[Rfam]
RNA: Hairpin ribozyme 1 from viruses-like metatranscriptomes
Nucleotides: 074
Stems, first nucleotide, its partner, number of pairs: 001030004009022005031074005043060007
Number, partner (000 for none) and nucleotide at each position: 001030a002029a003028g004027c005000g006000g007000g008000g009022c010021g011020g012019c013018a014000u015000g016000c017000a018013u019012g020011u021010c022009g023000c024000g025000a026000a027004g028003c029002u030001u031074g032073c033072c034071a035070g036000g037000g038000a039000a040000a041000c042000a043060u044059c045058g046057u047056u048055u049054u050000u051000c052000u053000u054049a055048a056047a057046a058045c059044g060043a061000g062000c063000a064000u065000a066000u067000u068000a069000a070035c071034u072033g073032g074031c